[Rfam]
RNA sequence: CAAUAACAUGAUGGUCAAAGCUCAUGGGAAUUGUGUGCCUUUUUGGCAUGCAAUUUUCGGGAGUUU
Numbered sequence: 001c002a003a004u005a006a007c008a009u010g011a012u013g014g015u016c017a018a019a020g021c022u023c024a025u026g027g028g029a030a031u032u033g034u035g036u037g038c039c040u041u042u043u044u045g046g047c048a049u050g051c052a053a054u055u056u057u058c059g060g061g062a063g064u065u066u
Base pairs, nucleotide, nucleotide: 018066019065020064021063022062023061032052033051034050035049036048037047
RNA: Streptococcus sRNA Spd-sr37
Organism: Streptococcus varani